[Rfam]
RNA sequence: UGAUGGCUGUUCCUCUCAUUGCUUGAAGCCUUAGGUGGGAGGAUUUUAGCCCACCAUAUAUCUAAGCUGACUUGUCUUCUCUUAGGACACCAUGAGGAUGGGCUGGUGGUUCAUUAGUGUCUUCUGAUUUUUACGGAGUCAGUU
Numbered sequence: 001u002g003a004u005g006g007c008u009g010u011u012c013c014u015c016u017c018a019u020u021g022c023u024u025g026a027a028g029c030c031u032u033a034g035g036u037g038g039g040a041g042g043a044u045u046u047u048a049g050c051c052c053a054c055c056a057u058a059u060a061u062c063u064a065a066g067c068u069g070a071c072u073u074g075u076c077u078u079c080u081c082u083u084a085g086g087a088c089a090c091c092a093u094g095a096g097g098a099u100g101g102g103c104u105g106g107u108g109g110u111u112c113a114u115u116a117g118u119g120u121c122u123u124c125u126g127a128u129u130u131u132u133a134c135g136g137a138g139u140c141a142g143u144u
Stems, first nucleotide, its partner, number of pairs: 001056002004053003008049001014043003020037004069140005082127005087120004096112004
RNA: Small nucleolar RNA SNORA79